[Rfam]
A member of the RNA family "MIR531 microRNA precursor family" from Panicum virgatum, 68 nucleotides long. The organism belongs to Panicum sect. Hiantes, within Eukaryota. The base pairs follow the family's consensus structure, which was predicted with RNAalifold.
RNA sequence: CCAAGCCUUGCUCGCCGGGUUGCGUGCCGCCAUGGCUGGCGCGCAUCCCUGUCGAGCGCUGCUCGGCG
Number, nucleotide and partner (000 for none) at each position: 001c000002c065003a000004a063005g062006c061007c000008u000009u058010g057011c056012u055013c054014g053015c000016c051017g049018g048019g047020u000021u045022g044023c043024g042025u041026g040027c039028c038029g036030c035031c000032a000033u000034g000035g030036c029037u000038g028039g027040c026041g025042c024043g023044c022045a021046u000047c019048c018049c017050u000051g016052u000053c014054g013055a012056g011057c010058g009059c000060u000061g006062c005063u004064c000065g002066g000067c000068g000